[Rfam]
RNA sequence: UGUGGUGGAAGCUCAUCAUGAGGUCACAUGCAGGGUGCUUGUCACUCAACCAAUCACCUUGGGGAAGGUCUGAGACAAGAGCCAAUCAUUGCCCUAGCAGGGUAUCACCUGAUCUGGGUGAGUGAGUGCACAGAGAAUAGGAGCCAUUGUGAGUUGUCUUUACAGGAGAAACCAGCCAUGCAGCUCUCCAGCACUACUGGUGGAUGUGCCCUCACUGGUUUGGAAACACUCAUGGCUGGCAUAUGAGUGCAAUGUGUGAGUUGGAGUACACCCAGAACCCAAUUCAGACUACUCUCUGCCCACA
Dot-bracket structure: ((((..(((..(((((..(((((.........(((((.....))))).........)))))........[[[[[.....((((......(((((.....)))))((((((.....))))))(((((((.............(............................................................................).......)))))))))))..................)))))((((.......)))).......]]]]].......)))...))))
This 304-nucleotide sequence from Oncorhynchus tshawytscha belongs to the Rfam family "Nuclear RNase P". By type it is a ribozyme. The family has 116 seed sequences and 3,848 matches in Rfam 15.1. Ribonuclease P (RNase P) is a ubiquitous endoribonuclease, found in archaea, bacteria and eukarya as well as chloroplasts and mitochondria. Its best characterised activity is the generation of mature 5'-ends of tRNAs by cleaving the 5'-leader elements of precursor-tRNAs. Cellular RNase Ps are ribonucleoproteins. NCBI's taxonomy places the organism under Eukaryota, Opisthokonta, Eumetazoa, Clupeocephala, Oncorhynchus.